Rfam assigns this 88-nucleotide RNA from Camellia sinensis to the family "Plastid-rpl20 3UTR RNA". Rfam classes the family as a cis-regulatory element. Rfam's curators write: Plastid rpl20 is a non-coding RNA (ncRNA) recognised in plastids. It was found in the three prime untranslated region (3UTR) of rpl20 gene, it presence in the 3UTR region sugest a role in transcript maduration. Taxonomically the source falls in Camellia sinensis (Eukaryota, Streptophytina, Embryophyta, eudicotyledons).
RNA sequence: AUUGAAUUCCCCGGAGAAUGGACUCCGGGAAGAUAGAAUAAAAAUAAAUUAAGAUGAUUAAGUAGUAGGAAUGAACGAGCAUCUAAAA
Numbered sequence: 001a002u003u004g005a006a007u008u009c010c011c012c013g014g015a016g017a018a019u020g021g022a023c024u025c026c027g028g029g030a031a032g033a034u035a036g037a038a039u040a041a042a043a044a045u046a047a048a049u050u051a052a053g054a055u056g057a058u059u060a061a062g063u064a065g066u067a068g069g070a071a072u073g074a075a076c077g078a079g080c081a082u083c084u085a086a087a088a
Stems, first nucleotide, its partner, number of pairs: 007031002010029007075084001